[Rfam]
RNA sequence: AAUUGUUACAAGUUCAGUUCCCGAAAGGAUUUACAUUAUAGAGUAAAGAUGCCUUGUAACCGAAUAUAAUUAGGGGGAAUAUAUUAUG
Numbered sequence: 001a002a003u004u005g006u007u008a009c010a011a012g013u014u015c016a017g018u019u020c021c022c023g024a025a026a027g028g029a030u031u032u033a034c035a036u037u038a039u040a041g042a043g044u045a046a047a048g049a050u051g052c053c054u055u056g057u058a059a060c061c062g063a064a065u066a067u068a069a070u071u072a073g074g075g076g077g078a079a080u081a082u083a084u085u086a087u088g
Stems, first nucleotide, its partner, number of pairs: 018079005025055004030047005060074002
Rfam assigns this 88-nucleotide RNA sequence from Melissococcus plutonius to the family "SAM-III riboswitch aptamer (SMK box)". It scores 82 bits against the family's covariance model. Its family is annotated with methionine adenosyltransferase activity and regulation of translational initiation in the Gene Ontology. The organism belongs to Melissococcus plutonius, within Bacteria.